[Rfam]
RNA sequence: UAGCUGUAAUGGCCGAAGGGAAACUGUCGCGUCCUCGUCUGCGACCCGAUCCACUUCACGUGACCACGACCUUUGACGCCUGGUUCGAAUCCUCGAGUCGCGACUUUUAUUCCUCGGAGUAAAAGUUCUCCCGCACUCGUGCUGAGUAAUCCACGAACGGCUGCGGCGCGCUAAGACAUGGAAGAGACACUUGAGGGAAGCAAUUCUGCAGAGGCCUUCCACUCGGGGAUGGCGGCACCAGAUCACGUCGGCGUGCGGGUCGCGGGGAGGACAUUUGACAGUUGACUUUUUUU
Numbered sequence: 001u002a003g004c005u006g007u008a009a010u011g012g013c014c015g016a017a018g019g020g021a022a023a024c025u026g027u028c029g030c031g032u033c034c035u036c037g038u039c040u041g042c043g044a045c046c047c048g049a050u051c052c053a054c055u056u057c058a059c060g061u062g063a064c065c066a067c068g069a070c071c072u073u074u075g076a077c078g079c080c081u082g083g084u085u086c087g088a089a090u091c092c093u094c095g096a097g098u099c100g101c102g103a104c105u106u107u108u109a110u111u112c113c114u115c116g117g118a119g120u121a122a123a124a125g126u127u128c129u130c131c132c133g134c135a136c137u138c139g140u141g142c143u144g145a146g147u148a149a150u151c152c153a154c155g156a157a158c159g160g161c162u163g164c165g166g167c168g169c170g171c172u173a174a175g176a177c178a179u180g181g182a183a184g185a186g187a188c189a190c191u192u193g194a195g196g197g198a199a200g201c202a203a204u205u206c207u208g209c210a211g212a213g214g215c216c217u218u219c220c221a222c223u224c225g226g227g228g229a230u231g232g233c234g235g236c237a238c239c240a241g242a243u244c245a246c247g248u249c250g251g252c253g254u255g256c257g258g259g260u261c262g263c264g265g266g267g268a269g270g271a272c273a274u275u276u277g278a279c280a281g282u283u284g285a286c287u288u289u290u291u292u293u
Stems, first nucleotide, its partner, number of pairs: 001015001003013002016290005023282007031272004035265001040264009056063002067253002070251001074250005080241005085235003089230009128168001130166001132165004137156005144151002171175001179221006190213003197206003
RNA: Fungal signal recognition particle RNA
Organism: Trichophyton rubrum